[Rfam]
RNA sequence: GAAACGGAGCGGUACCUCCUUAACCCUUGAAGUCACCGUGAUGUUUCGCAGAGUUUCUCUCAAACUCGAAAUAACUAAAGCCAACGUGAACUUUUGCGGACCCUCAGGUCCGCA
Numbered sequence: 001g002a003a004a005c006g007g008a009g010c011g012g013u014a015c016c017u018c019c020u021u022a023a024c025c026c027u028u029g030a031a032g033u034c035a036c037c038g039u040g041a042u043g044u045u046u047c048g049c050a051g052a053g054u055u056u057c058u059c060u061c062a063a064a065c066u067c068g069a070a071a072u073a074a075c076u077a078a079a080g081c082c083a084a085c086g087u088g089a090a091c092u093u094u095u096g097c098g099g100a101c102c103c104u105c106a107g108g109u110c111c112g113c114a
Stems, first nucleotide, its partner, number of pairs: 001047006009039004014033002017030002051067004096113007
The record is a 114-nucleotide RNA from Enterobacteriaceae bacterium strain FGI 57, which matches "OxyS RNA" in Rfam. Rfam classes the family as a small RNA. Lineage of the source: Bacteria > Pseudomonadati > Gammaproteobacteria > Enterobacterales > Enterobacteriaceae. The family's consensus secondary structure is taken from published work.